[Rfam]
This 93-nucleotide RNA sequence from Desulfosporosinus sp. HMP52 belongs to the Rfam family "Glycine riboswitch aptamer". A search with the family's covariance model found it, with a score of 69 bits.

RNA sequence: UGACAGGACUCUGGAGAGAUCCAUUAAUGGGCGCCGAAGGGGCAACGCAAAAUGCUUUGCUAAUCUCUCAGGCAAAAGGACAGAGUAUUGAAG
Numbered sequence: 001u002g003a004c005a006g007g008a009c010u011c012u013g014g015a016g017a018g019a020u021c022c023a024u025u026a027a028u029g030g031g032c033g034c035c036g037a038a039g040g041g042g043c044a045a046c047g048c049a050a051a052a053u054g055c056u057u058u059g060c061u062a063a064u065c066u067c068u069c070a071g072g073c074a075a076a077a078g079g080a081c082a083g084a085g086u087a088u089u090g091a092a093g
Base pairs, nucleotide, nucleotide: 006088008086009085010084011083012082013081020031021030022029023028033073034072035071036069037068040067041066042065047060048059049058050057051056

Annotation: This family represents the bacterial glycine riboswitch.